[Rfam]
RNA sequence: GGGUGCCUUGAAGACCUGCUCGCUAGGCUAUGCACGGAGGACGUGGUUCCUCAUGGGCCCCGCGCCCGCCUAGGGGAAAGUCCCCGGACCGCCGGCAGAGAGUGCCGGGCGCUAUGCGCGCCCCCGCCCGCCACCGCCUCACGCAGCUCCCGCCAAGACGCCCCCGGGCUGAGCGGGUGAGCGCGGGGCGGGCACUCGUCACGGCCACAGAAACGCAGGUAGUGCGCAUGCGCACCAACAGAACGGGGCUCACUCUCAGGGCAUC
Numbered sequence: 001g002g003g004u005g006c007c008u009u010g011a012a013g014a015c016c017u018g019c020u021c022g023c024u025a026g027g028c029u030a031u032g033c034a035c036g037g038a039g040g041a042c043g044u045g046g047u048u049c050c051u052c053a054u055g056g057g058c059c060c061c062g063c064g065c066c067c068g069c070c071u072a073g074g075g076g077a078a079a080g081u082c083c084c085c086g087g088a089c090c091g092c093c094g095g096c097a098g099a100g101a102g103u104g105c106c107g108g109g110c111g112c113u114a115u116g117c118g119c120g121c122c123c124c125c126g127c128c129c130g131c132c133a134c135c136g137c138c139u140c141a142c143g144c145a146g147c148u149c150c151c152g153c154c155a156a157g158a159c160g161c162c163c164c165c166g167g168g169c170u171g172a173g174c175g176g177g178u179g180a181g182c183g184c185g186g187g188g189c190g191g192g193c194a195c196u197c198g199u200c201a202c203g204g205c206c207a208c209a210g211a212a213a214c215g216c217a218g219g220u221a222g223u224g225c226g227c228a229u230g231c232g233c234a235c236c237a238a239c240a241g242a243a244c245g246g247g248g249c250u251c252a253c254u255c256u257c258a259g260g261g262c263a264u265c
Base pairs, nucleotide, nucleotide: 002265003264004263005262006261007260008259009258010257011256014220015219016218017217018216019215023073024072025071026070027069028068037052038051039050040049041048079250080249082248083247084246085245094106095105096104097103107123108122109121110120111119112118125192127190131188132187134186135185136184137183138181139180140179141178150176151175152174153173160169161168162167222235223234224233225232226231

Overview
The record is a 265-nucleotide RNA from Crotophaga sulcirostris, which matches "RNase MRP" in Rfam. Its family is annotated with ribonuclease MRP activity, ribonuclease MRP complex and rRNA processing in the Gene Ontology. The match comes from Rfam's covariance-model search (150 bits). The family's RNA type in Rfam is ribozyme. Taxonomically the source falls in Crotophaga (Eukaryota, Amniota, Archelosauria, Coelurosauria).